[Rfam]
RNA sequence: GUUUGUCUGAUGAGUAAAUUAUUUUCUGACACCUCGAAUGAAUCACUGUGAUUUCAACUGUUUUAACAACUGAAGUU
Numbered sequence: 001g002u003u004u005g006u007c008u009g010a011u012g013a014g015u016a017a018a019u020u021a022u023u024u025u026c027u028g029a030c031a032c033c034u035c036g037a038a039u040g041a042a043u044c045a046c047u048g049u050g051a052u053u054u055c056a057a058c059u060g061u062u063u064u065a066a067c068a069a070c071u072g073a074a075g076u077u
Stems, first nucleotide, its partner, number of pairs: 001077001003075001038049003

This 77-nucleotide sequence from Drosophila mojavensis belongs to the Rfam family "Small nucleolar RNA Me28S-Gm3255". Gene Ontology terms of the family: nucleolus and RNA processing. It is annotated as a C/D-box small nucleolar RNA. The organism belongs to mojavensis species complex, within Eukaryota. The family is grouped with related families in Rfam's "SNORD60 clan". The base pairs follow the family's consensus structure, which was predicted with PFOLD.